[Rfam]
Background:
The family of this 70-nucleotide sequence from Carya illinoinensis is "Small nucleolar RNA Z105". The match comes from Rfam's covariance-model search (53 bits). It is annotated as a C/D-box small nucleolar RNA.
RNA sequence: GCAUAAUGAUGAGGAAUUUGUGUGACUGAUUCUUUUGUAUGAAGAAUUAAUUACCUCCUACUCAUACUGA
Numbered sequence: 001g002c003a004u005a006a007u008g009a010u011g012a013g014g015a016a017u018u019u020g021u022g023u024g025a026c027u028g029a030u031u032c033u034u035u036u037g038u039a040u041g042a043a044g045a046a047u048u049a050a051u052u053a054c055c056u057c058c059u060a061c062u063c064a065u066a067c068u069g070a
Stems, first nucleotide, its partner, number of pairs: 006065004027045001030041001